[Rfam]
Shown here is a 74-nucleotide RNA sequence from Shewanella mangrovi, a member of the family "int-alpA RNA". It is annotated as a small RNA. The family has 167 seed sequences and 577 matches in Rfam 15.1. From the family's description: Acidobacteria (1 example), Planctomycetes (1 example), Proteobacteria. The family's consensus secondary structure is taken from published work. The match comes from Rfam's covariance-model search (37 bits).
RNA sequence: GCCAAGGCUAGGAUCGCUACCGAAAAGGGUGUGUAGCCCUCUACACCCCGCCUUGGCGCCCAACACAGUGGGGG
Numbered sequence: 001g002c003c004a005a006g007g008c009u010a011g012g013a014u015c016g017c018u019a020c021c022g023a024a025a026a027g028g029g030u031g032u033g034u035a036g037c038c039c040u041c042u043a044c045a046c047c048c049c050g051c052c053u054u055g056g057c058g059c060c061c062a063a064c065a066c067a068g069u070g071g072g073g074g
Stems, first nucleotide, its partner, number of pairs: 001057008011021002027048005038074006